[Rfam]
RNA sequence: UGGGGACGAUGCAGACUCCCCGUGAGACCCAGGUCCAAGCUCUGC
Numbered sequence: 001u002g003g004g005g006a007c008g009a010u011g012c013a014g015a016c017u018c019c020c021c022g023u024g025a026g027a028c029c030c031a032g033g034u035c036c037a038a039g040c041u042c043u044g045c
Stems, first nucleotide, its partner, number of pairs: 001022006011045005026035003

Overview
This 45-nucleotide RNA from Bradyrhizobium yuanmingense belongs to the Rfam family "chrB-b RNA". By type it is a cis-regulatory element. The sequence is in the family's curated seed alignment.